Record summary:
Rfam assigns this 80-nucleotide RNA from Phrynocephalus forsythii to the family "Epstein-Barr virus stable intronic sequence RNA 2". The match comes from Rfam's covariance-model search (43 bits). NCBI's taxonomy places the organism under Eukaryota, Dipnotetrapodomorpha, Tetrapoda, Iguania, Phrynocephalus.
RNA sequence: GGCGGAGGGCAGUGGGAGGGGCCUGCGAUCUGGUCUCCGCACGCGGAGCCAGAUCGGAGCCCCCUGUCCAGCUCUCCGCC
Number, nucleotide and partner (000 for none) at each position: 001g080002g079003c078004g077005g076006a075007g074008g073009g072010c000011a000012g000013u000014g067015g000016g000017a000018g063019g062020g061021g060022c059023c000024u058025g000026c056027g055028a054029u053030c052031u051032g050033g049034u000035c048036u047037c046038c045039g044040c000041a000042c000043g000044c039045g038046g037047a036048g035049c033050c032051a031052g030053a029054u028055c027056g026057g000058a024059g022060c021061c020062c019063c018064c000065u000066g000067u014068c000069c000070a000071g000072c009073u008074c007075u006076c005077c004078g003079c002080c001